[Rfam]
RNA sequence: UACUACCAAACCCUGUCUCCACCUCCACGUGGUGACCACUGGGAGCUCUUUCAUAAGGAAAAACUGCAGACGGGGAAGG
Numbered sequence: 001u002a003c004u005a006c007c008a009a010a011c012c013c014u015g016u017c018u019c020c021a022c023c024u025c026c027a028c029g030u031g032g033u034g035a036c037c038a039c040u041g042g043g044a045g046c047u048c049u050u051u052c053a054u055a056a057g058g059a060a061a062a063a064c065u066g067c068a069g070a071c072g073g074g075g076a077a078g079g
Base pairs, nucleotide, nucleotide: 012079013078014077016075017074018073019072021033022032023031045065047063049061050060051059052058
RNA: drz-agam-1 ribozyme